[Rfam]
RNA sequence: AGUUUCCUUCGGGGCAGGGCGUAAUUCCCUACCGACGGUGAUGAGCUUACAAGCUCUUAGUCCGUGACCCGGAUGCUUUAUAUAAAGCAGAAGGUGGAUUUGGUGAAACUCCAAAGCCGACAGUUAAAGUCUGGAUGAGAGAAGGAACAG
Numbered sequence: 001a002g003u004u005u006c007c008u009u010c011g012g013g014g015c016a017g018g019g020c021g022u023a024a025u026u027c028c029c030u031a032c033c034g035a036c037g038g039u040g041a042u043g044a045g046c047u048u049a050c051a052a053g054c055u056c057u058u059a060g061u062c063c064g065u066g067a068c069c070c071g072g073a074u075g076c077u078u079u080a081u082a083u084a085a086a087g088c089a090g091a092a093g094g095u096g097g098a099u100u101u102g103g104u105g106a107a108a109c110u111c112c113a114a115a116g117c118c119g120a121c122a123g124u125u126a127a128a129g130u131c132u133g134g135a136u137g138a139g140a141g142a143a144g145g146a147a148c149a150g
Base pairs, nucleotide, nucleotide: 004147005146006145007144008143009142010141017029018028019027031130032129033119034118035065036064037063038062060117061116069094070093099115100114101113102112103111121133122132123131
The family of this 150-nucleotide sequence from Sporosarcina sp. P19 is "FMN riboswitch aptamer (RFN element)". Pairs were carried over by alignment from the consensus structure, which is taken from published work. The match comes from Rfam's covariance-model search (113 bits).